[Rfam]
RNA sequence: UUGUGGCAGUCGACGUUUGUCUUAUUUGGUAGUGUUGAAUGAAGUUCUAUCAUAAGACACACGCGGCUAUCACAG
Numbered sequence: 001u002u003g004u005g006g007c008a009g010u011c012g013a014c015g016u017u018u019g020u021c022u023u024a025u026u027u028g029g030u031a032g033u034g035u036u037g038a039a040u041g042a043a044g045u046u047c048u049a050u051c052a053u054a055a056g057a058c059a060c061a062c063g064c065g066g067c068u069a070u071c072a073c074a075g
Base pairs, nucleotide, nucleotide: 001075002074003073004072005071006070008068009067010066011065014063015062018059019058022056023055027052028051029050030049031048
This 75-nucleotide RNA from Hermetia illucens belongs to the Rfam family "mir-970 microRNA precursor family". A search with the family's covariance model found it, with a score of 68 bits. The source organism's lineage runs through Eukaryota, Ecdysozoa, Mandibulata, Dicondylia and Hermetia. The family has 11 seed sequences and 75 matches in Rfam 15.1.